[Rfam]
A member of the RNA family "Eukaryotic large subunit ribosomal RNA" from Owenia fusiformis, 467 nucleotides of a longer RNA. Its family is annotated with structural constituent of ribosome and ribosome in the Gene Ontology. The family's consensus secondary structure is taken from published work.
RNA sequence: GGUAGUAGCAAAUAUUCAAACGAGAACUUUGAAGGCCGAAGUGGAGAAGGGUUCCAUGUGAACAGCAGUUGAACAUGGGUCAGUCGGCCCUAAGAGAUAGGCAAACGCCGUUCGGAAGCGGGGCUCUAGCGCACGCAAACGCCCGCCAUUCAUCGAAAGGGAAUCGGGUUAAUAUUCCCGAACCCGGACACGGAGACGGGCCCCUCGGGGUCCAGUGCGGCAACGCAAACGAACUCGGAGACGCCGGCGGAAGUCCCGGGAAGAGUUCUCUUUUCUUUGUAAGGGACGGACUCCCUGGAAUCGGUUUGCCCGGAGAUAGGGACGUCGUGCCCGUAAAGCACCGCGGCUCUUGCGGUGUCCGGUGCACUUCCGUCGGCCCGUGAAAAUCCGAGGGAGACGGUGUGAUUUUCGUGCCGGACCGUACCCAUAUCCGCAGCAGGUCUCCAAGGUUAACAGUCUCUGGCCGA
Numbered sequence: 001g002g003u004a005g006u007a008g009c010a011a012a013u014a015u016u017c018a019a020a021c022g023a024g025a026a027c028u029u030u031g032a033a034g035g036c037c038g039a040a041g042u043g044g045a046g047a048a049g050g051g052u053u054c055c056a057u058g059u060g061a062a063c064a065g066c067a068g069u070u071g072a073a074c075a076u077g078g079g080u081c082a083g084u085c086g087g088c089c090c091u092a093a094g095a096g097a098u099a100g101g102c103a104a105a106c107g108c109c110g111u112u113c114g115g116a117a118g119c120g121g122g123g124c125u126c127u128a129g130c131g132c133a134c135g136c137a138a139a140c141g142c143c144c145g146c147c148a149u150u151c152a153u154c155g156a157a158a159g160g161g162a163a164u165c166g167g168g169u170u171a172a173u174a175u176u177c178c179c180g181a182a183c184c185c186g187g188a189c190a191c192g193g194a195g196a197c198g199g200g201c202c203c204c205u206c207g208g209g210g211u212c213c214a215g216u217g218c219g220g221c222a223a224c225g226c227a228a229a230c231g232a233a234c235u236c237g238g239a240g241a242c243g244c245c246g247g248c249g250g251a252a253g254u255c256c257c258g259g260g261a262a263g264a265g266u267u268c269u270c271u272u273u274u275c276u277u278u279g280u281a282a283g284g285g286a287c288g289g290a291c292u293c294c295c296u297g298g299a300a301u302c303g304g305u306u307u308g309c310c311c312g313g314a315g316a317u318a319g320g321g322a323c324g325u326c327g328u329g330c331c332c333g334u335a336a337a338g339c340a341c342c343g344c345g346g347c348u349c350u351u352g353c354g355g356u357g358u359c360c361g362g363u364g365c366a367c368u369u370c371c372g373u374c375g376g377c378c379c380g381u382g383a384a385a386a387u388c389c390g391a392g393g394g395a396g397a398c399g400g401u402g403u404g405a406u407u408u409u410c411g412u413g414c415c416g417g418a419c420c421g422u423a424c425c426c427a428u429a430u431c432c433g434c435a436g437c438a439g440g441u442c443u444c445c446a447a448g449g450u451u452a453a454c455a456g457u458c459u460c461u462g463g464c465c466g467a
Stems, first nucleotide, its partner, number of pairs: 015033006034465004043445004049425002054078006063071002085421003089160002094154002096112003100109003119145003164181005184417004206411005211405002216227004234392006243377004248372007256362003260278005283332003292322006301313004339357007431440002447459004